A member of the RNA family "Connexin-43 internal ribosome entry site (IRES)" from Phyllostomus discolor, 200 nucleotides long.
Gene Ontology term of the family: ribosome binding.
The family's consensus secondary structure is taken from published work.
A reference for the family is Schiavi et al. (1999), "Connexin43 mRNA contains a functional internal ribosome entry site", FEBS Lett.
Taxonomically the source falls in Phyllostomus (Eukaryota, Metazoa, Amniota, Yangochiroptera).

RNA sequence: AGUUUUUACGAGGUACCAGCACUUUUCUUUCAUUAGGGUAAAGGAGUGAGGAAAGUACCAAACAGCAGCAGACUUUUAAACUUUAAAUAUAAGCAGGUCUGAGUGACUGAACUUGCUUGUUCAUUUUACUUCAUCCUCUAAGGAGUUCAAUCAGUUGGAGUGUCUACUUCUUUUAAGAGAAAGAGUAAGUUUAAAUUUUU
Numbered sequence: 001a002g003u004u005u006u007u008a009c010g011a012g013g014u015a016c017c018a019g020c021a022c023u024u025u026u027c028u029u030u031c032a033u034u035a036g037g038g039u040a041a042a043g044g045a046g047u048g049a050g051g052a053a054a055g056u057a058c059c060a061a062a063c064a065g066c067a068g069c070a071g072a073c074u075u076u077u078a079a080a081c082u083u084u085a086a087a088u089a090u091a092a093g094c095a096g097g098u099c100u101g102a103g104u105g106a107c108u109g110a111a112c113u114u115g116c117u118u119g120u121u122c123a124u125u126u127u128a129c130u131u132c133a134u135c136c137u138c139u140a141a142g143g144a145g146u147u148c149a150a151u152c153a154g155u156u157g158g159a160g161u162g163u164c165u166a167c168u169u170c171u172u173u174u175a176a177g178a179g180a181a182a183g184a185g186u187a188a189g190u191u192u193a194a195a196u197u198u199u200u
Base pairs, nucleotide, nucleotide: 002020003019004018007015008014009013029145030144031143033141034140035139036138037137038136041131042130043129048125049124051122053121054120070100071099072098073097074096075095101116103114105112154196155195156194158192160191163188167183168182169181170179171178172177
This family represents the connexin-43 internal ribosome entry site (IRES) which allows cap independent translation during conditions such as heat shock and stress.